[Rfam]
RNA sequence: GGAUCUCCGUCCUGUGAGACCUCUCGUCGUUCCCGCCCCGAUGCAACUUCCCCGGUGGCGGGUCGGGAACGACGAGGAAUCUGGCAGGACGGCACCGCGACC
Number, nucleotide and partner (000 for none) at each position: 001g000002g000003a000004u000005c000006u000007c000008c000009g000010u089011c088012c087013u086014g085015u084016g000017a000018g081019a080020c000021c000022u077023c076024u075025c074026g073027u072028c071029g070030u069031u068032c067033c066034c065035g064036c000037c062038c061039c060040g059041a000042u057043g056044c055045a000046a000047c000048u000049u000050c000051c000052c000053c000054g000055g044056u043057g042058g000059c040060g039061g038062g037063u000064c035065g034066g033067g032068a031069a030070c029071g028072a027073c026074g025075a024076g023077g022078a000079a000080u019081c018082u000083g000084g015085c014086a013087g012088g011089a010090c000091g000092g000093c000094a000095c000096c000097g000098c000099g000100a000101c000102c000

The family of this 102-nucleotide RNA from Brachybacterium alimentarium is "mraW RNA". Taxonomically the source falls in Brachybacterium (Bacteria, Bacillati, Micrococcales, Dermabacteraceae). The family's RNA type in Rfam is cis-regulatory element. Pairs were carried over by alignment from the consensus structure, which is taken from published work.